[Rfam]
RNA: c-di-AMP riboswitch aptamer (ydaO/yuaA leader)
Organism: Paenibacillus sp. UNCCL117
RNA sequence: UCGUUAUAAACGCUGAAUCCUUGCCUAGCAAGGAGCGGGGGAACCAAUCGAAGCCGCAGCAUGGCUUCACGGGGUGAAUCGUCCGGCACUUCCAGGUGCCGGAGGUAGGGCGACUUUCGCGCCCGAAUCCGUCAGCUAACCUCGCAAGCGUACGAAGGGGCAACA
Number, nucleotide and partner (000 for none) at each position: 001u000002c000003g000004u000005u000006a000007u000008a000009a000010a000011c150012g149013c148014u147015g000016a000017a000018u034019c033020c032021u031022u030023g029024c028025c000026u000027a000028g024029c023030a022031a021032g020033g019034a018035g145036c144037g143038g142039g141040g140041g000042a000043a000044c000045c071046a000047a000048u000049c000050g000051a000052a000053g000054c000055c000056g000057c000058a000059g000060c000061a000062u000063g000064g000065c000066u000067u000068c000069a000070c000071g045072g130073g129074g128075u000076g000077a000078a000079u000080c105081g000082u103083c102084c101085g100086g099087c098088a097089c096090u095091u000092c000093c000094a000095g090096g089097u088098g087099c086100c085101g084102g083103a082104g000105g080106u000107a000108g124109g123110g122111c121112g000113a000114c000115u000116u000117u000118c000119g000120c000121g111122c110123c109124c108125g000126a000127a000128u074129c073130c072131g000132u000133c000134a000135g000136c000137u000138a000139a000140c040141c039142u038143c037144g036145c035146a000147a014148g013149c012150g011151u000152a000153c000154g000155a000156a000157g000158g000159g000160g000161c000162a000163a000164c000165a000